[Rfam]
RNA sequence: CCCUCCACUCACGUGGCGGGCUAUUUCAUUGCGUCGCUACGCGACU
Numbered sequence: 001c002c003c004u005c006c007a008c009u010c011a012c013g014u015g016g017c018g019g020g021c022u023a024u025u026u027c028a029u030u031g032c033g034u035c036g037c038u039a040c041g042c043g044a045c046u
Stems, first nucleotide, its partner, number of pairs: 001020003005016004033045005

Shown here is a 46-nucleotide RNA sequence from Candidatus Korobacter versatilis, a member of the family "Acido-Lenti-1 RNA". The family has 87 seed sequences and 2,607 matches in Rfam 15.1.